Rfam assigns this 97-nucleotide sequence from Pseudomonas graminis to the family "t44 RNA". The family's RNA type in Rfam is small RNA. The family's consensus secondary structure was predicted with LocARNA. This family consists of a number of bacterial RNA genes of between 135 and 170 bases in length. The t44 gene has been identified in several species of enteric bacteria but homologs have also been identified in Pseudomonas and Coxiella species. The t44 gene is found between the map and rpsB genes in all species in the full alignment apart from Shigella flexneri. A search with the family's covariance model found it, with a score of 69 bits.
[Rfam]
RNA sequence: GCCCCGAAAGCUCUAACCCACACACGUGUCGACACGAUGACCUGGGUGCCUUCGGCUCAAGUCGCUGGUUGGUCAUUGGGAUACGUGGAGGCCUAAC
Numbered sequence: 001g002c003c004c005c006g007a008a009a010g011c012u013c014u015a016a017c018c019c020a021c022a023c024a025c026g027u028g029u030c031g032a033c034a035c036g037a038u039g040a041c042c043u044g045g046g047u048g049c050c051u052u053c054g055g056c057u058c059a060a061g062u063c064g065c066u067g068g069u070u071g072g073u074c075a076u077u078g079g080g081a082u083a084c085g086u087g088g089a090g091g092c093c094u095a096a097c
Stems, first nucleotide, its partner, number of pairs: 023087008035078008048069003